[Rfam]
RNA sequence: GAAGUAAUGUCAAAGUGCUUACAGUGCAGGUAGUGUCUAAAAUCUACUGCAGUGGAGGCACUUCAAGCAUUAUGUU
Numbered sequence: 001g002a003a004g005u006a007a008u009g010u011c012a013a014a015g016u017g018c019u020u021a022c023a024g025u026g027c028a029g030g031u032a033g034u035g036u037c038u039a040a041a042a043u044c045u046a047c048u049g050c051a052g053u054g055g056a057g058g059c060a061c062u063u064c065a066a067g068c069a070u071u072a073u074g075u076u
Stems, first nucleotide, its partner, number of pairs: 004073004009068002013063008022054002025051003029048005
RNA: mir-17 microRNA precursor family